[Rfam]
RNA sequence: CAUGAUCAGACCUCGGAUAUUCAGAUCAUCCUCGGGAAGGUGCGCUCACUUUGACGCCACCUCGCCGAGGCU
Numbered sequence: 001c002a003u004g005a006u007c008a009g010a011c012c013u014c015g016g017a018u019a020u021u022c023a024g025a026u027c028a029u030c031c032u033c034g035g036g037a038a039g040g041u042g043c044g045c046u047c048a049c050u051u052u053g054a055c056g057c058c059a060c061c062u063c064g065c066c067g068a069g070g071c072u
Stems, first nucleotide, its partner, number of pairs: 003028005009021002037052006

A member of the RNA family "Actinobacteria sRNA Ms_AS-8" from Mycobacterium simulans, 72 nucleotides long. The source organism's lineage runs through Bacteria, Bacillati, Actinomycetes, Mycobacteriaceae and Mycobacterium. By type it is a small RNA.